RNA sequence: GGAGGCAAAUGAUGAUAAACAAAAAACUUAUACUACACACUGAAAAUGAAUGAAGACAAAUAACUCUCAAUUAAUUUUCUGAUGCCUCC
Numbered sequence: 001g002g003a004g005g006c007a008a009a010u011g012a013u014g015a016u017a018a019a020c021a022a023a024a025a026a027c028u029u030a031u032a033c034u035a036c037a038c039a040c041u042g043a044a045a046a047u048g049a050a051u052g053a054a055g056a057c058a059a060a061u062a063a064c065u066c067u068c069a070a071u072u073a074a075u076u077u078u079c080u081g082a083u084g085c086c087u088c089c
Base pairs, nucleotide, nucleotide: 003087004086005085006084007083
Background
The family of this 89-nucleotide RNA from Nicotiana attenuata is "Small nucleolar RNA R16". The family's RNA type in Rfam is C/D-box small nucleolar RNA. Rfam links the family to the GO terms RNA processing and nucleolus. The family's consensus secondary structure was predicted with PFOLD. Rfam 15.1 lists 884 matches to the family in 222 species.